Rfam assigns this 289-nucleotide sequence from Cadophora sp. M221 to the family "A. fumigatus sRNA Afu_309". It scores 148 bits against the family's covariance model. NCBI's taxonomy places the organism under Eukaryota, Opisthokonta, Ascomycota, Pezizomycotina, Cadophora. On this family, see Jochl et al., Nucleic Acids Res 2008: "Small ncRNA transcriptome analysis from Aspergillus fumigatus suggests a novel mechanism for regulation of protein synthesis". Pairs were carried over by alignment from the consensus structure, which was predicted with WAR.

RNA sequence: UUUUCUUCCACAACCACAGAUUUGUGCCCAGUGAUCCCUUCAGCCUCCGGGCUGUAAGGUUGAUUGCUGUGGCAGUUCGUUCGUUCUAUGGAGCCACCAAGCCUUCACAGGUUUCCCAUGGUGUCAAUUUCCGAUCGACAGAUCUCAGAGUAAUUGGACACCACGAAGCUUGAAUUCGCUGUAAAAGGCUUGAGCUCAGUGGACGGUGUUCCGAAGACGUCACAUUCCAAAUCCUUUCGCCGAGACCGUCGGUUGGUGAGGUCAAGGGCUAACCGUUUCGAUUACAUUA
Numbered sequence: 001u002u003u004u005c006u007u008c009c010a011c012a013a014c015c016a017c018a019g020a021u022u023u024g025u026g027c028c029c030a031g032u033g034a035u036c037c038c039u040u041c042a043g044c045c046u047c048c049g050g051g052c053u054g055u056a057a058g059g060u061u062g063a064u065u066g067c068u069g070u071g072g073c074a075g076u077u078c079g080u081u082c083g084u085u086c087u088a089u090g091g092a093g094c095c096a097c098c099a100a101g102c103c104u105u106c107a108c109a110g111g112u113u114u115c116c117c118a119u120g121g122u123g124u125c126a127a128u129u130u131c132c133g134a135u136c137g138a139c140a141g142a143u144c145u146c147a148g149a150g151u152a153a154u155u156g157g158a159c160a161c162c163a164c165g166a167a168g169c170u171u172g173a174a175u176u177c178g179c180u181g182u183a184a185a186a187g188g189c190u191u192g193a194g195c196u197c198a199g200u201g202g203a204c205g206g207u208g209u210u211c212c213g214a215a216g217a218c219g220u221c222a223c224a225u226u227c228c229a230a231a232u233c234c235u236u237u238c239g240c241c242g243a244g245a246c247c248g249u250c251g252g253u254u255g256g257u258g259a260g261g262u263c264a265a266g267g268g269c270u271a272a273c274c275g276u277u278u279c280g281a282u283u284a285c286a287u288u289a
Stems, first nucleotide, its partner, number of pairs: 018145008026073003029069003033065004037059004041054005082137002085134002089126003093122003156211003167200001169199002172197002175194003178189002216282001218280002222276002232268005239262003244254004